[Rfam]
RNA: c-di-AMP riboswitch aptamer (ydaO/yuaA leader)
Organism: Cohnella sp. CIP 111063
Nucleotides: 134
Stems, first nucleotide, its partner, number of pairs: 011119004018033005034114006050100003058078007081094002
Number, partner (000 for none) and nucleotide at each position: 001000a002000a003000c004000u005000a006000u007000a008000u009000u010000u011119u012118g013117c014116c015000g016000a017000a018033u019032u020031c021030u022029c023000g024000a025000u026000u027000a028000a029022g030021a031020g032019a033018a034114a035113c036112g037111g038110g039109g040000g041000a042000a043000c044000c045000g046000u047000u048000u049000u050100g051099g052098g053000u054000g055000a056000a057000u058078u059077a060076a061075c062074c063073u064072u065000g066000a067000u068000c069000a070000u071000a072064a073063a074062g075061g076060u077059u078058a079000u080000a081094g082093g083000g084000a085000a086000c087000c088000u089000u090000c091000a092000a093082c094081c095000g096000a097000a098052c099051c100050c101000u102000c103000a104000g105000c106000u107000a108000a109039c110038c111037u112036c113035g114034u115000a116014g117013g118012c119011a120000c121000c122000g123000a124000a125000g126000g127000g128000a129000g130000a131000a132000g133000c134000a